[Rfam]
RNA: Small nucleolar RNA SNORA46
RNA sequence: AGCACUAUAUUUAAACCAAUGGAUGGCCGUGCUUCCCAUCCUUGGUUACGCUGUGGUGCUAAAGAAUGCCUUGGCUCUUCUGCUUGCACAGCUGCUUCAGUACCAUUCUGCUGUAGCUGUCAGGAGUGAAGGGACACAC
Dot-bracket structure: .((((((((....((((...((((((.........))))))..))))....)))))))).......(.(((..(((((...(...((.((((.(.............).))))..))...).)))))..))).).....
Numbered sequence: 001a002g003c004a005c006u007a008u009a010u011u012u013a014a015a016c017c018a019a020u021g022g023a024u025g026g027c028c029g030u031g032c033u034u035c036c037c038a039u040c041c042u043u044g045g046u047u048a049c050g051c052u053g054u055g056g057u058g059c060u061a062a063a064g065a066a067u068g069c070c071u072u073g074g075c076u077c078u079u080c081u082g083c084u085u086g087c088a089c090a091g092c093u094g095c096u097u098c099a100g101u102a103c104c105a106u107u108c109u110g111c112u113g114u115a116g117c118u119g120u121c122a123g124g125a126g127u128g129a130a131g132g133g134a135c136a137c138a139c
Stems, first nucleotide, its partner, number of pairs: 002059008014047004021041006067134001069132003074127005082121001086117002089113004094108001